[Rfam]
RNA: Bacterial RNase P class A
Organism: Flavobacterium sp. KMS
RNA sequence: CCCGCAGACCGCCUUAUCGUCGCUCAUUUAGGUGAGGGGAGGAAAGUCCGGACACCACAGAGAAGCAUAGCGGGUAACACCCGUCGGCGUUAGCAAUAACGUUAGGACAAGUGCAGCAGAAAGUAUGUACAGGUAAUGCUGUAGUGAAAACAGGUAAACUCUAUGCGGUGAAAUAUCAAGUAUAUCAGCAUUUAAGGGCUUCUCGUUCGUUGCUGAAGGGUAGAUAGCUUGAACUUAUGAGUAAUUGUAAGUCUAGAUAAAUGAUAAGGUAUUGUUAGUAAUAACAAGAACAGAAUCCGGCUUAUAGGUCUGCAUUUUUU
Numbered sequence: 001c002c003c004g005c006a007g008a009c010c011g012c013c014u015u016a017u018c019g020u021c022g023c024u025c026a027u028u029u030a031g032g033u034g035a036g037g038g039g040a041g042g043a044a045a046g047u048c049c050g051g052a053c054a055c056c057a058c059a060g061a062g063a064a065g066c067a068u069a070g071c072g073g074g075u076a077a078c079a080c081c082c083g084u085c086g087g088c089g090u091u092a093g094c095a096a097u098a099a100c101g102u103u104a105g106g107a108c109a110a111g112u113g114c115a116g117c118a119g120a121a122a123g124u125a126u127g128u129a130c131a132g133g134u135a136a137u138g139c140u141g142u143a144g145u146g147a148a149a150a151c152a153g154g155u156a157a158a159c160u161c162u163a164u165g166c167g168g169u170g171a172a173a174u175a176u177c178a179a180g181u182a183u184a185u186c187a188g189c190a191u192u193u194a195a196g197g198g199c200u201u202c203u204c205g206u207u208c209g210u211u212g213c214u215g216a217a218g219g220g221u222a223g224a225u226a227g228c229u230u231g232a233a234c235u236u237a238u239g240a241g242u243a244a245u246u247g248u249a250a251g252u253c254u255a256g257a258u259a260a261a262u263g264a265u266a267a268g269g270u271a272u273u274g275u276u277a278g279u280a281a282u283a284a285c286a287a288g289a290a291c292a293g294a295a296u297c298c299g300g301c302u303u304a305u306a307g308g309u310c311u312g313c314a315u316u317u318u319u320u
Stems, first nucleotide, its partner, number of pairs: 004313007011305001012269007020039002023036005044303003048300005053170004060204004065166005070084005085105001086103007106161002111159002113155002128143005174226004185216005196208004233252008